[Rfam]
RNA sequence: CUUUCUUUGCAGGUUGGGAUGAGUAGCAGUGCUGUGUUCUGGAGAGGUAUUGCACUUGUCCCGGCCUGUUGAGGACUG
Numbered sequence: 001c002u003u004u005c006u007u008u009g010c011a012g013g014u015u016g017g018g019a020u021g022a023g024u025a026g027c028a029g030u031g032c033u034g035u036g037u038u039c040u041g042g043a044g045a046g047g048u049a050u051u052g053c054a055c056u057u058g059u060c061c062c063g064g065c066c067u068g069u070u071g072a073g074g075a076c077u078g
Stems, first nucleotide, its partner, number of pairs: 004074003009069006016062005022056003026053008
Shown here is a 78-nucleotide RNA from Conger conger, a member of the family "mir-92 microRNA precursor family". Rfam 15.1 lists 1,347 matches to the family in 653 species. From the family's description: This family represents the microRNA precursor mir-92. Human miR-92 has two predicted hairpin precursor sequences: mir-92-1 on chromosome 13 and mir-92-2 on chromosome X. miR-92 has also been cloned from mouse embryonic stem cells. The family is grouped with related families in Rfam's "mir-92 microRNA precursor clan". Pairs were carried over by alignment from the consensus structure, which was predicted with PFOLD. Taxonomically the source falls in Conger (Eukaryota, Chordata, Gnathostomata, Teleostei).